The family of this 80-nucleotide RNA sequence from Sulfitobacter noctilucicola is "chrB-a RNA".
The organism belongs to Sulfitobacter, within Bacteria.
RNA sequence: CCUAUGGGGUCUUACCGCGAACGCCCCGUGAGGCUUUGGCCAGAGGUUCGCAUGUCUCCACCAUAAGGAUGCAUGCCAUG
Numbered sequence: 001c002c003u004a005u006g007g008g009g010u011c012u013u014a015c016c017g018c019g020a021a022c023g024c025c026c027c028g029u030g031a032g033g034c035u036u037u038g039g040c041c042a043g044a045g046g047u048u049c050g051c052a053u054g055u056c057u058c059c060a061c062c063a064u065a066a067g068g069a070u071g072c073a074u075g076c077c078a079u080g
Stems, first nucleotide, its partner, number of pairs: 005028006050076006